A member of the RNA family "U5 spliceosomal RNA" from Gonium pectorale, 114 nucleotides long.
A search with the family's covariance model found it, with a score of 66 bits.
[Rfam]
RNA sequence: AAGCGCCGAGCCGCACACGUCCUCUCAUAUCUCUUUCGCCUUUUACUAAAGAGAUCAGCGGUUGCGGCUCACAGAGGCGCAUAUUGCAAAUAUUUGGGAGGUCUCUUGGCCUUC
Numbered sequence: 001a002a003g004c005g006c007c008g009a010g011c012c013g014c015a016c017a018c019g020u021c022c023u024c025u026c027a028u029a030u031c032u033c034u035u036u037c038g039c040c041u042u043u044u045a046c047u048a049a050a051g052a053g054a055u056c057a058g059c060g061g062u063u064g065c066g067g068c069u070c071a072c073a074g075a076g077g078c079g080c081a082u083a084u085u086g087c088a089a090a091u092a093u094u095u096g097g098g099a100g101g102u103c104u105c106u107u108g109g110c111c112u113u114c
Stems, first nucleotide, its partner, number of pairs: 003080004009069007018060002029055008098113006
Dot-bracket structure: ..((((..(((((((..((.........((((((((...........))))))))...))..))))))).......)))).................((((((....)))))).
The family's RNA type in Rfam is spliceosomal small nuclear RNA. Pairs were carried over by alignment from the consensus structure, which is taken from published work. The source organism's lineage runs through Eukaryota, Viridiplantae, Chlorophyta, Chlorophyceae and Gonium. The literature on the family includes a 1997 paper in Nucleic Acids Res by Zwieb, "The uRNA database".